[Rfam]
The record is a 100-nucleotide part of an RNA from Acidianus brierleyi, which matches "Archaeal large subunit ribosomal RNA" in Rfam.
RNA sequence: GGCAGAGCUCGAAAGAGAUGAGCCCUUCCAAAGGAGGGGGACGCAAGUCCCUAGUACGAGGAAGGGUGAUCGGGGUUCUGCUUUUCGUCUUGAAACACGG
Numbered sequence: 001g002g003c004a005g006a007g008c009u010c011g012a013a014a015g016a017g018a019u020g021a022g023c024c025c026u027u028c029c030a031a032a033g034g035a036g037g038g039g040g041a042c043g044c045a046a047g048u049c050c051c052u053a054g055u056a057c058g059a060g061g062a063a064g065g066g067u068g069a070u071c072g073g074g075g076u077u078c079u080g081c082u083u084u085u086c087g088u089c090u091u092g093a094a095a096c097a098c099g100g
Base pairs, nucleotide, nucleotide: 001082002081003080004079005078006077007076008075009074010073015071016070023066024065025064026063027062028061029060033057038051039050040049041048042047085100086099087098088097
Its Rfam clan is "LSU clan".